[Rfam]
RNA: Ribosomal protein L13 leader
Organism: Granulicatella sp. WM01
RNA sequence: GGUAUUGUUUGCCCCAUGAUGAGCCCCGGAAACUUAUUAUGUAACAAACAAGGA
Numbered sequence: 001g002g003u004a005u006u007g008u009u010u011g012c013c014c015c016a017u018g019a020u021g022a023g024c025c026c027c028g029g030a031a032a033c034u035u036a037u038u039a040u041g042u043a044a045c046a047a048a049c050a051a052g053g054a
Stems, first nucleotide, its partner, number of pairs: 006050006015041009